[Rfam]
RNA: Plant small nucleolar RNA R71
RNA sequence: AAGCCAUGGUGUGGGCACUUAGCUUGGUAUCCCUUGAACCUUUCCCAUGCUUCACUAAAGCUUUCCAAGUUCUUCUGCUGGAAACUAGAGAUCUCAUUCCUCAGCUU
Numbered sequence: 001a002a003g004c005c006a007u008g009g010u011g012u013g014g015g016c017a018c019u020u021a022g023c024u025u026g027g028u029a030u031c032c033c034u035u036g037a038a039c040c041u042u043u044c045c046c047a048u049g050c051u052u053c054a055c056u057a058a059a060g061c062u063u064u065c066c067a068a069g070u071u072c073u074u075c076u077g078c079u080g081g082a083a084a085c086u087a088g089a090g091a092u093c094u095c096a097u098u099c100c101u102c103a104g105c106u107u
Stems, first nucleotide, its partner, number of pairs: 001107001003105002006101001057074002060071001